Background:
Rfam assigns this 32-nucleotide RNA sequence from Microcebus murinus to the family "Iron response element II".
[Rfam]
RNA sequence: UUUUUAUCGGAGCCAGUGUGCUUCCAUAACAU
Numbered sequence: 001u002u003u004u005u006a007u008c009g010g011a012g013c014c015a016g017u018g019u020g021c022u023u024c025c026a027u028a029a030c031a032u
Stems, first nucleotide, its partner, number of pairs: 002031001004029004009025003012021002014018001
Record summary:
Rfam links the family to the GO term response to iron ion. Rfam describes the family as follows. IRE, TFRC, SLC40A1, SDHB, SLC11A2, CDC42BPA, ACO2, ALAS2_H.SAPIENS, CDC14A, EPAS1, ALAS2, qoxD, Hao1, NDUFS1, transferrin, Aconitate. On this family, see Koeller et al., Proc Natl Acad Sci U S A 1989: "A cytosolic protein binds to structural elements within the iron regulatory region of the transferrin receptor mRNA". Rfam 15.1 lists 5,197 matches to the family in 722 species.